The family of this 96-nucleotide RNA sequence from Desulforamulus reducens is "Glycine riboswitch aptamer". Taxonomically the source falls in Desulforamulus reducens (Bacteria, Clostridia, Eubacteriales, Peptococcaceae). The match comes from Rfam's covariance-model search (69 bits).
RNA sequence: GGACAGGACUCUGGAGAGACCCAUAAUUGGGCGCCGAAGGUGCAAACAGCUUAUAAGAGCUGUAAAUCUCUCAGGCAAAAGGACAGAGGGUAGAAG
Numbered sequence: 001g002g003a004c005a006g007g008a009c010u011c012u013g014g015a016g017a018g019a020c021c022c023a024u025a026a027u028u029g030g031g032c033g034c035c036g037a038a039g040g041u042g043c044a045a046a047c048a049g050c051u052u053a054u055a056a057g058a059g060c061u062g063u064a065a066a067u068c069u070c071u072c073a074g075g076c077a078a079a080a081g082g083a084c085a086g087a088g089g090g091u092a093g094a095a096g
Stems, first nucleotide, its partner, number of pairs: 006091001009088005020031004033076003036072002040070001042068001046063005